[Rfam]
The record is a 108-nucleotide RNA sequence from Treponema berlinense, which matches "drum RNA" in Rfam. Firmicutes, Bacteroidetes (1 example), Proteobacteria (2 examples), Spirochaetes (2 examples). A search with the family's covariance model found it, with a score of 63 bits.
RNA sequence: AGAUUAUUACGCAGCGUAUUGCGUUCAGAAGCAGUAUUCUGCCAGUCUUUGAAGGGUUUUCCGGAGACCUCAUCUGAACUAGGCGAAAGCCGAAAGAAAACGGAACAA
Numbered sequence: 001a002g003a004u005u006a007u008u009a010c011g012c013a014g015c016g017u018a019u020u021g022c023g024u025u026c027a028g029a030a031g032c033a034g035u036a037u038u039c040u041g042c043c044a045g046u047c048u049u050u051g052a053a054g055g056g057u058u059u060u061c062c063g064g065a066g067a068c069c070u071c072a073u074c075u076g077a078a079c080u081a082g083g084c085g086a087a088a089g090c091c092g093a094a095a096g097a098a099a100a101c102g103g104a105a106c107a108a
Base pairs, nucleotide, nucleotide: 001048002047003046004045011042012041013040014039016037017036018035019034020033021032022031024078025077026076027075061103062102063101082091083090084089